[Rfam]
Nucleotides: 221
Base pairs, nucleotide, nucleotide: 007201008200009199013067014066016064072087073086074085075084076083077082091132092131093130094129095128159193160192161191162190163189165187166186167185169182170181171180172179204219205218206217207216208215
Number, partner (000 for none) and nucleotide at each position: 001000c002000g003000a004000a005000c006000c007201g008200g009199u010000a011000a012000c013067g014066g015000g016064g017000g018000a019000c020000g021000u022000c023000c024000g025000g026000u027000u028000g029000a030000a031000g032000a033000c034000u035000c036000g037000a038000u039000g040000g041000g042000a043000a044000g045000a046000a047000c048000u049000c050000u051000u052000u053000c054000c055000c056000a057000c058000c059000c060000a061000a062000c063000c064016c065000a066014c067013c068000c069000u070000u071000g072087u073086c074085a075084c076083c077082c078000c079000a080000u081000c082077g083076g084075g085074u086073g087072a088000c089000g090000c091132g092131g093130u094129g095128g096000a097000a098000a099000g100000c101000g102000c103000c104000u105000c106000g107000a108000u109000c110000g111000g112000c113000a114000c115000g116000g117000u118000a119000g120000c121000g122000u123000c124000g125000c126000g127000c128095u129094c130093a131092c132091c133000c134000g135000a136000u137000g138000a139000g140000a141000c142000g143000u144000c145000g146000g147000g148000a149000a150000a151000a152000u153000g154000a155000c156000g157000a158000c159193g160192g161191c162190c163189c164000c165187c166186g167185c168000c169182g170181g171180g172179a173000c174000a175000g176000c177000c178000a179172u180171c181170c182169c183000g184000g185167g186166c187165g188000a189163g190162g191161g192160c193159c194000u195000g196000a197000u198000c199009a200008u201007c202000a203000a204219g205218g206217a207216a208215g209000c210000a211000g212000a213000c214000c215208c216207u217206u218205c219204c220000c221000c